The family of this 297-nucleotide RNA sequence from Sporosarcina sp. HYO08 is "5' ureB small RNA".
Rfam links the family to the GO term negative regulation of gene expression.
Rfam 15.1 lists 4,812 matches to the family in 4,480 species.
For this family Rfam cites "Helicobacter pylori 5'ureB-sRNA, a cis-encoded antisense small RNA, negatively regulates ureAB expression by transcription termination" (Wen et al., J Bacteriol, 2013).
A search with the family's covariance model found it, with a score of 110 bits.
RNA sequence: GUGCAACGUCAACUUGGUCUGGGUUGAUGAAGUGUACGUGUGUGUCAAUUGCGCCAGCUGUAACAAUUUUACCUUCAGCAGCAAUGACUUCUGUAGCUGUACCAACGAUCAUGUUUGGCGUAACGCCAUCCAUAAUGUCCGGGUUACCGCCUUUACCGAUGCCGACGAUGUAACCGUCUUUCACACCGAUAUCCGCUUUGUAAAUUCCUGUAUGGUCAAGAAUAAGUGCAUUUGUAAGUAGAAGGUCAAGUACAUUUUCAUUGCGCGUGUAUGUACCGUUUUCUCCCAUACCUUCAC
Numbered sequence: 001g002u003g004c005a006a007c008g009u010c011a012a013c014u015u016g017g018u019c020u021g022g023g024u025u026g027a028u029g030a031a032g033u034g035u036a037c038g039u040g041u042g043u044g045u046c047a048a049u050u051g052c053g054c055c056a057g058c059u060g061u062a063a064c065a066a067u068u069u070u071a072c073c074u075u076c077a078g079c080a081g082c083a084a085u086g087a088c089u090u091c092u093g094u095a096g097c098u099g100u101a102c103c104a105a106c107g108a109u110c111a112u113g114u115u116u117g118g119c120g121u122a123a124c125g126c127c128a129u130c131c132a133u134a135a136u137g138u139c140c141g142g143g144u145u146a147c148c149g150c151c152u153u154u155a156c157c158g159a160u161g162c163c164g165a166c167g168a169u170g171u172a173a174c175c176g177u178c179u180u181u182c183a184c185a186c187c188g189a190u191a192u193c194c195g196c197u198u199u200g201u202a203a204a205u206u207c208c209u210g211u212a213u214g215g216u217c218a219a220g221a222a223u224a225a226g227u228g229c230a231u232u233u234g235u236a237a238g239u240a241g242a243a244g245g246u247c248a249a250g251u252a253c254a255u256u257u258u259c260a261u262u263g264c265g266c267g268u269g270u271a272u273g274u275a276c277c278g279u280u281u282u283c284u285c286c287c288a289u290a291c292c293u294u295c296a297c
Stems, first nucleotide, its partner, number of pairs: 001297003005294002008291002015168001017166003021163002023079005033056002037053002042049002060072003081156001084153001086151001088149001093147006101138002108133001112132002116128001118126002173280001175278002180273001183270003187265001195229002198226002209218002232263001234261001237258001240255001244253001
Description:
The family's consensus secondary structure was predicted with mfold.